[Rfam]
RNA sequence: GGUUCCCAUUGGUGUAAAUUCAAUCACUUCAAUUGAAGAGGAGAAACAAUUCCCCAUUGGUAUCAAAUGGUUAUCCAUUAAGCGGGGAAAAUU
Number, nucleotide and partner (000 for none) at each position: 001g000002g000003u000004u000005c000006c000007c000008a000009u023010u022011g021012g020013u000014g000015u000016a000017a000018a000019u000020u012021c011022a010023a009024u000025c000026a000027c000028u000029u000030c000031a000032a000033u000034u000035g000036a000037a000038g000039a000040g000041g000042a000043g000044a000045a000046a000047c000048a000049a000050u000051u000052c087053c086054c085055c084056a078057u077058u000059g075060g074061u073062a072063u000064c070065a000066a000067a000068u000069g000070g064071u000072u062073a061074u060075c059076c000077a057078u056079u000080a000081a000082g000083c000084g055085g054086g053087g052088a000089a000090a000091a000092u000093u000